A member of the RNA family "Small nucleolar RNA snoR100" from Rhododendron simsii, 108 nucleotides long.
[Rfam]
RNA sequence: CAAUGAAAGAAGCAUGAUAAUGUGUACAUAAAUUGAAUUGGGUCUCUAGAUCUGCCAUUUCUUGUGUCACUUGGUUUUGAUUUGGCGUUAUGGUUCUGCAGCAAAACA
Numbered sequence: 001c002a003a004u005g006a007a008a009g010a011a012g013c014a015u016g017a018u019a020a021u022g023u024g025u026a027c028a029u030a031a032a033u034u035g036a037a038u039u040g041g042g043u044c045u046c047u048a049g050a051u052c053u054g055c056c057a058u059u060u061c062u063u064g065u066g067u068c069a070c071u072u073g074g075u076u077u078u079g080a081u082u083u084g085g086c087g088u089u090a091u092g093g094u095u096c097u098g099c100a101g102c103a104a105a106a107c108a
Base pairs, nucleotide, nucleotide: 012025013024014023015022040091042089044087050081051080052079054075055074056073
For this family Rfam cites "Experimental RNomics: identification of 140 candidates for small non-messenger RNAs in the plant Arabidopsis thaliana" (Marker et al., Curr Biol, 2002). Rfam classes the family as an H/ACA-box small nucleolar RNA.